Shown here is a 103-nucleotide RNA sequence from Gracilibacillus halotolerans, a member of the family "SAM riboswitch aptamer (S box leader)". The match comes from Rfam's covariance-model search (73 bits). The organism belongs to Gracilibacillus, within Bacteria.

RNA sequence: UGGUUAUCAAGAGUGAACGAGAGUCCUGGCUCUAUGACUUCACGGCAACCUGCCUAAAAGGUAAGGUGCUCCCACCAGCAAAGCUUGCUUUGGAUGAUAACGA
Numbered sequence: 001u002g003g004u005u006a007u008c009a010a011g012a013g014u015g016a017a018c019g020a021g022a023g024u025c026c027u028g029g030c031u032c033u034a035u036g037a038c039u040u041c042a043c044g045g046c047a048a049c050c051u052g053c054c055u056a057a058a059a060g061g062u063a064a065g066g067u068g069c070u071c072c073c074a075c076c077a078g079c080a081a082a083g084c085u086u087g088c089u090u091u092g093g094a095u096g097a098u099a100a101c102g103a
Stems, first nucleotide, its partner, number of pairs: 001103001003101006013043005021032003026078004044070004049066002051063004074095001079092005